This 104-nucleotide RNA from Coprinellus micaceus belongs to the Rfam family "tRNA".
RNA sequence: GGCGAGAUGGCCGAGCGGUCUAAGGCGCCAGACUAAGGAUCAGGACAUUCGAUGUCCACUACAUCUGGUCCGAAAGGGCGUGGGUUCGAAUCCCACUCUCGUCA
Number, nucleotide and partner (000 for none) at each position: 001g103002g102003c101004g100005a099006g098007a097008u000009g000010g026011c025012c024013g000014a000015g000016c000017g000018g000019u000020c000021u000022a000023a000024g012025g011026c010027g000028c044029c043030a000031g041032a040033c000034u000035a000036a000037g000038g000039a000040u032041c031042a000043g029044g028045a000046c000047a000048u000049u000050c000051g000052a000053u000054g000055u000056c000057c000058a000059c000060u000061a000062c000063a000064u000065c000066u000067g000068g000069u000070c000071c000072g000073a000074a000075a000076g000077g000078g000079c000080g096081u095082g094083g093084g092085u000086u000087c000088g000089a000090a000091u000092c084093c083094c082095a081096c080097u007098c006099u005100c004101g003102u002103c001104a000
It scores 52 bits against the family's covariance model.